Rhodo-rpoB RNA: a 97-nucleotide RNA. The family's RNA type in Rfam is cis-regulatory element. The sequence is in the family's curated seed alignment.

[Rfam]
RNA sequence: AGAUCGAGUGACGCGCGGUGGGACGUGCGCCGAGAAUGGAUCCGUUUCACGCCGUCACUGACGAGAAUGCGCCGUUGCAGCCCCGGCACUGCGCGCG
Dot-bracket structure: .((((....(.((((((......)))))).).......)))).........................(((((((.((.........)).)).)))))
Numbered sequence: 001a002g003a004u005c006g007a008g009u010g011a012c013g014c015g016c017g018g019u020g021g022g023a024c025g026u027g028c029g030c031c032g033a034g035a036a037u038g039g040a041u042c043c044g045u046u047u048c049a050c051g052c053c054g055u056c057a058c059u060g061a062c063g064a065g066a067a068u069g070c071g072c073c074g075u076u077g078c079a080g081c082c083c084c085g086g087c088a089c090u091g092c093g094c095g096c097g
Stems, first nucleotide, its partner, number of pairs: 002042004010031001012029006068097005073091002076088002